[Rfam]
RNA sequence: AGCAGUCCUGUCAAAUUCAGUCCCUUCCCCCUCCGUGGCAAGGGCCGGCCAUCCGGCUGCCACAGCAGAGCUGCAGUCCAUGUGCCCCACGUCCCUUCCUGUGGGACCCUGGGGACAAAAUGGUGCCACAGACAGGC
Numbered sequence: 001a002g003c004a005g006u007c008c009u010g011u012c013a014a015a016u017u018c019a020g021u022c023c024c025u026u027c028c029c030c031c032u033c034c035g036u037g038g039c040a041a042g043g044g045c046c047g048g049c050c051a052u053c054c055g056g057c058u059g060c061c062a063c064a065g066c067a068g069a070g071c072u073g074c075a076g077u078c079c080a081u082g083u084g085c086c087c088c089a090c091g092u093c094c095c096u097u098c099c100u101g102u103g104g105g106a107c108c109c110u111g112g113g114g115a116c117a118a119a120a121u122g123g124u125g126c127c128a129c130a131g132a133c134a135g136g137c
Stems, first nucleotide, its partner, number of pairs: 002060004018047001020045004025040001027038002073129001076126002078123001085114005
Small nucleolar RNA SNORA5: a 137-nucleotide sequence from Meleagris gallopavo. The family is grouped with related families in Rfam's "SNORA5 clan". The match comes from Rfam's covariance-model search (57 bits). From the family's description: ACA5 is a member of the H/ACA class of snoRNA that guide the sites of modification of uridines to pseudouridines.